[Rfam]
RNA sequence: CCUUGCAAAUAUAUAACAUUUUGCUUUUGGUCCUUGUUGUUUUAGUUUAGUCCUUACAAAAUUGAUUCAUAUUGAAAUUGGUCCUUGUAAUAAUGUAAAAUAUUUGAUUUUAGUCCUUUAAAAUAAGGACCAAAGUAAAUAUUACAAGGACUAAUUUUAACAUGAACAUAUUUUGCAAGGACUAAAACAAAACAUCAAGGACCAAAAACAAAAUGUUAUAUAUUUGCAAGGA
Numbered sequence: 001c002c003u004u005g006c007a008a009a010u011a012u013a014u015a016a017c018a019u020u021u022u023g024c025u026u027u028u029g030g031u032c033c034u035u036g037u038u039g040u041u042u043u044a045g046u047u048u049a050g051u052c053c054u055u056a057c058a059a060a061a062u063u064g065a066u067u068c069a070u071a072u073u074g075a076a077a078u079u080g081g082u083c084c085u086u087g088u089a090a091u092a093a094u095g096u097a098a099a100a101u102a103u104u105u106g107a108u109u110u111u112a113g114u115c116c117u118u119u120a121a122a123a124u125a126a127g128g129a130c131c132a133a134a135g136u137a138a139a140u141a142u143u144a145c146a147a148g149g150a151c152u153a154a155u156u157u158u159a160a161c162a163u164g165a166a167c168a169u170a171u172u173u174u175g176c177a178a179g180g181a182c183u184a185a186a187a188c189a190a191a192a193c194a195u196c197a198a199g200g201a202c203c204a205a206a207a208a209c210a211a212a213a214u215g216u217u218a219u220a221u222a223u224u225u226g227c228a229a230g231g232a
Base pairs, nucleotide, nucleotide: 006226007225008224009223010222011221012220013219015217016216018214019213020212023209025207026206027205028204029203030202031201032200033199034198035197038194039193040192041191042190043189046186047185048184049183051181052180054178055177057175058174059173060172061171062170066166067165069163070162072160073159074158078154079153080152081151082150083149084148088144089143090142091141092140094139107124108123109122110121111120
MIR2630 microRNA precursor family: a 232-nucleotide RNA sequence from Trifolium medium. Taxonomically the source falls in Trifolium (Eukaryota, Tracheophyta, Mesangiospermae, Gunneridae). Pairs were carried over by alignment from the consensus structure, which was predicted with RNAalifold. The family has 23 seed sequences and 296 matches in Rfam 15.1.